[Rfam]
RNA sequence: ACAUACUUCUUUAUGUACCCAUAUGAAUAUAUGACAGCUAUGGAAUGUAAAGAAGUAUGUAU
Numbered sequence: 001a002c003a004u005a006c007u008u009c010u011u012u013a014u015g016u017a018c019c020c021a022u023a024u025g026a027a028u029a030u031a032u033g034a035c036a037g038c039u040a041u042g043g044a045a046u047g048u049a050a051a052g053a054a055g056u057a058u059g060u061a062u
Stems, first nucleotide, its partner, number of pairs: 001060016019043005
A member of the RNA family "mir-1 microRNA precursor family" from Salmo salar, 62 nucleotides long. On this family, see Lee and Ambros, Science 2001: "An extensive class of small RNAs in Caenorhabditis elegans". NCBI's taxonomy places the organism under Eukaryota, Eumetazoa, Chordata, Protacanthopterygii, Salmo. Pairs were carried over by alignment from the consensus structure, which was predicted with RNAalifold. It is one of the family's seed sequences. Rfam 15.1 lists 4,474 matches to the family in 965 species. This family represents the microRNA (miRNA) mir-1 family. miRNAs are transcribed as ~70nt precursors (modelled here) and subsequently processed by the Dicer enzyme to give a ~22nt product. In this case the mature sequence comes from the 3' arm of the precursor.